[Rfam]
RNA sequence: GUCGGGCGGGCGGAGAAUACAACACCCGAAAGGGGAAUAAUCCCAGCCGUUUCUUUUGGUCGGCUUUCGAACCACCUGGCACCCUUAA
Number, nucleotide and partner (000 for none) at each position: 001g080002u079003c078004g077005g076006g075007c000008g073009g072010g000011c000012g000013g044014a000015g042016a041017a000018u000019a000020c000021a000022a000023c000024a000025c034026c033027c032028g000029a000030a000031a000032g027033g026034g025035g000036a000037a000038u000039a000040a000041u016042c015043c000044c013045a065046g064047c063048c062049g061050u000051u000052u000053c000054u000055u000056u000057u000058g000059g000060u000061c049062g048063g047064c046065u045066u000067u000068c000069g000070a000071a000072c009073c008074a000075c006076c005077u004078g003079g002080c001081a000082c000083c000084c000085u000086u000087a000088a000
RNA: sRNA-Xcc1
Organism: Haemophilus influenzae